The family of this 278-nucleotide RNA sequence from Moellerella wisconsensis is "Soft rot Enterobacteriaceae Rev 39 5'UTR". On this family, see Kwenda et al., BMC Genomics 2016: "Discovery and profiling of small RNAs responsive to stress conditions in the plant pathogen Pectobacterium atrosepticum". NCBI's taxonomy places the organism under Bacteria, Pseudomonadati, Pseudomonadota, Moellerella, Moellerella wisconsensis. It is annotated as a cis-regulatory element. Rfam's curators write: From bacteria cultured under starvation conditions. It scores 116 bits against the family's covariance model.
[Rfam]
RNA sequence: AAAAGUUGUCAAAAUAUUUUUAAAAUGAUAACUCUUAAGUUAUACAGAAUCACAUUGAAUAGAAGAUUAUGAACGCAUUUGUCCAAGUUAUUAGCCUAAUUAUACUAAGCGUGGUGGUGAUUAUUAUCCCACCGUGCGGGGCUGCACUUGGACGAAGAACGGCUUAAAGAUUAGCCAGAUCUCACAAGAACCCCGCACCGAAAGGCGCGGGUUUUUUUUUGCGUAAAUAUCGAAAAAUUAAAAUGUGUGGUCGUAAAAAUAAUUAAUGCAAAUAAAAC
Numbered sequence: 001a002a003a004a005g006u007u008g009u010c011a012a013a014a015u016a017u018u019u020u021u022a023a024a025a026u027g028a029u030a031a032c033u034c035u036u037a038a039g040u041u042a043u044a045c046a047g048a049a050u051c052a053c054a055u056u057g058a059a060u061a062g063a064a065g066a067u068u069a070u071g072a073a074c075g076c077a078u079u080u081g082u083c084c085a086a087g088u089u090a091u092u093a094g095c096c097u098a099a100u101u102a103u104a105c106u107a108a109g110c111g112u113g114g115u116g117g118u119g120a121u122u123a124u125u126a127u128c129c130c131a132c133c134g135u136g137c138g139g140g141g142c143u144g145c146a147c148u149u150g151g152a153c154g155a156a157g158a159a160c161g162g163c164u165u166a167a168a169g170a171u172u173a174g175c176c177a178g179a180u181c182u183c184a185c186a187a188g189a190a191c192c193c194c195g196c197a198c199c200g201a202a203a204g205g206c207g208c209g210g211g212u213u214u215u216u217u218u219u220u221g222c223g224u225a226a227a228u229a230u231c232g233a234a235a236a237a238u239u240a241a242a243a244u245g246u247g248u249g250g251u252c253g254u255a256a257a258a259a260u261a262a263u264u265a266a267u268g269c270a271a272a273u274a275a276a277a278c
Stems, first nucleotide, its partner, number of pairs: 005032007015022002036059001039056001042050001077238003082233002086228001091226003094222002098220002101111001103109001113133005119128003134153002137150004154183002156180001161176004186216008194207002198205002239265003243254003